[Rfam]
The record is a 103-nucleotide sequence, which matches "Methylobacterium-1 RNA" in Rfam. The sequence is in the family's curated seed alignment.

Nucleotides: 103
Base pairs, nucleotide, nucleotide: 004032005031006030007029008028009027013025038055039054040053041052042051057094058093059092060091061090062089063088064087065086066085069084070083071082072081
Number, partner (000 for none) and nucleotide at each position: 001000a002000a003000a004032g005031u006030u007029g008028g009027a010000u011000g012000g013025g014000g015000u016000g017000u018000c019000g020000a021000a022000a023000g024000a025013u026000u027009u028008c029007c030006a031005a032004c033000a034000g035000g036000a037000c038055g039054a040053g041052g042051g043000a044000g045000a046000a047000u048000u049000a050000a051042c052041c053040c054039u055038c056000a057094a058093g059092u060091g061090a062089u063088g064087c065086a066085g067000g068000u069084a070083a071082u072081u073000a074000u075000c076000c077000a078000a079000u080000c081072a082071g083070u084069u085066c086065u087064g088063c089062a090061u091060u092059g093058c094057u095000a096000c097000c098000g099000u100000a101000g102000u103000u
The base pairs follow the family's consensus structure, which is taken from published work. Rfam classes the family as a small RNA.